[Rfam]
RNA sequence: GUUCCCCGUGAUGCCUUACAGUGUGACCAUGCUAAUUCUGAUCAUAAAUUGAUUGAAAUGGUUCUGUGUGAUUUCUGAGGGAACA
Numbered sequence: 001g002u003u004c005c006c007c008g009u010g011a012u013g014c015c016u017u018a019c020a021g022u023g024u025g026a027c028c029a030u031g032c033u034a035a036u037u038c039u040g041a042u043c044a045u046a047a048a049u050u051g052a053u054u055g056a057a058a059u060g061g062u063u064c065u066g067u068g069u070g071a072u073u074u075c076u077g078a079g080g081g082a083a084c085a
Stems, first nucleotide, its partner, number of pairs: 001084005
Shown here is an 85-nucleotide RNA from Handroanthus impetiginosus, a member of the family "Small nucleolar RNA snoR53Y". A search with the family's covariance model found it, with a score of 65 bits. The base pairs follow the family's consensus structure, which was predicted with WAR. The family's RNA type in Rfam is C/D-box small nucleolar RNA. Clan: snoR53 clan. Rfam links the family to the GO terms nucleolus and RNA processing.